Record summary:
This 54-nucleotide sequence from Onychostoma macrolepis belongs to the Rfam family "UnaL2 LINE 3' element". The literature on the family includes a 2004 paper in RNA by Baba et al., "Solution structure of an RNA stem-loop derived from the 3' conserved region of eel LINE UnaL2". Its family is annotated with transposition, RNA-mediated in the Gene Ontology. Pairs were carried over by alignment from the consensus structure, which is taken from published work. The match comes from Rfam's covariance-model search (57 bits).

[Rfam]
RNA sequence: AAAACUGUAACUUGUAAGUCGCUUUGGAUAAAAGCGUCUGCCAAAUGCAUAAAU
Numbered sequence: 001a002a003a004a005c006u007g008u009a010a011c012u013u014g015u016a017a018g019u020c021g022c023u024u025u026g027g028a029u030a031a032a033a034g035c036g037u038c039u040g041c042c043a044a045a046u047g048c049a050u051a052a053a054u
Stems, first nucleotide, its partner, number of pairs: 013043001014041003020036006
Dot-bracket structure: ............((((...((((((.....))))))..))).)...........